[Rfam]
RNA sequence: UCGACUGUACUUUACAGGAUCUGUAUAUAGUCAGUCACCCGUCUUCGUUUUCCAACCUAGACACACAAUUUCCACUGGAUGAUGAUUUGUAGUGCACCUUUCGUAAAGGGAAGUGUGGACGUUUAGUUAGGGGUAAAAGAUUAUUCGGCUUCGGUCGGGUGGUUUUGUACUUUUAACUAAAUCCCAGUUGAUGAUCUUGCUAAUCCCUUAUUCCGAGGGGUUAGUGAGAAAGGAUGCACAGUCUGACAGUUC
Numbered sequence: 001u002c003g004a005c006u007g008u009a010c011u012u013u014a015c016a017g018g019a020u021c022u023g024u025a026u027a028u029a030g031u032c033a034g035u036c037a038c039c040c041g042u043c044u045u046c047g048u049u050u051u052c053c054a055a056c057c058u059a060g061a062c063a064c065a066c067a068a069u070u071u072c073c074a075c076u077g078g079a080u081g082a083u084g085a086u087u088u089g090u091a092g093u094g095c096a097c098c099u100u101u102c103g104u105a106a107a108g109g110g111a112a113g114u115g116u117g118g119a120c121g122u123u124u125a126g127u128u129a130g131g132g133g134u135a136a137a138a139g140a141u142u143a144u145u146c147g148g149c150u151u152c153g154g155u156c157g158g159g160u161g162g163u164u165u166u167g168u169a170c171u172u173u174u175a176a177c178u179a180a181a182u183c184c185c186a187g188u189u190g191a192u193g194a195u196c197u198u199g200c201u202a203a204u205c206c207c208u209u210a211u212u213c214c215g216a217g218g219g220g221u222u223a224g225u226g227a228g229a230a231a232g233g234a235u236g237c238a239c240a241g242u243c244u245g246a247c248a249g250u251u252c
Stems, first nucleotide, its partner, number of pairs: 001041001003039001006034001009031003016026001018024001044065001047062004074250004092239005097233006107198004117184003121178001200224004205219003
The record is a 252-nucleotide RNA from Diversispora eburnea, which matches "ACEA small nucleolar RNA U3" in Rfam. Small nucleolar RNAs (snoRNAs) are involved in the processing and modification of rRNA in the nucleolus. There are two main classes of snoRNAs: the box C/D class, and the box H/ACA class. Clan: U3 clan. A reference for the family is Speckmann et al. (1999), "Nuclear retention elements of U3 small nucleolar RNA", Mol Cell Biol. Rfam links the family to the GO terms nucleolus and RNA processing. The source organism's lineage runs through Eukaryota, Glomeromycota, Glomeromycotina, Glomeromycetes and Diversispora.